[Rfam]
Rfam assigns this 107-nucleotide RNA from Salinivirga cyanobacteriivorans to the family "Bacteroidales small SRP". A reference for the family is Ryan et al. (2020), "A high-resolution transcriptome map identifies small RNA regulation of metabolism in the gut microbe Bacteroides thetaiotaomicron", Nat Commun. A search with the family's covariance model found it, with a score of 94 bits. The family is grouped with related families in Rfam's "SRP clan". Gene Ontology terms of the family: SRP-dependent cotranslational protein targeting to membrane, signal sequence recognition and signal recognition particle, plasma membrane targeting. The base pairs follow the family's consensus structure, which is taken from published work. The family's RNA type in Rfam is non-coding RNA gene.

RNA sequence: CAGUCCGGGGCAAGUCUCAUACGACCAGCUCCCGUUGAACUCCCCCAGGUCCGGAAGGAAGCAAGGGUAGACGGUUGAGCGGUGCGAUGUGAGUCGCUUGCCCCUCU
Numbered sequence: 001c002a003g004u005c006c007g008g009g010g011c012a013a014g015u016c017u018c019a020u021a022c023g024a025c026c027a028g029c030u031c032c033c034g035u036u037g038a039a040c041u042c043c044c045c046c047a048g049g050u051c052c053g054g055a056a057g058g059a060a061g062c063a064a065g066g067g068u069a070g071a072c073g074g075u076u077g078a079g080c081g082g083u084g085c086g087a088u089g090u091g092a093g094u095c096g097c098u099u100g101c102c103c104c105u106c107u
Base pairs, nucleotide, nucleotide: 008103009102010101011100012099013098014097015096017092018091019090020089021088022086023085024083025082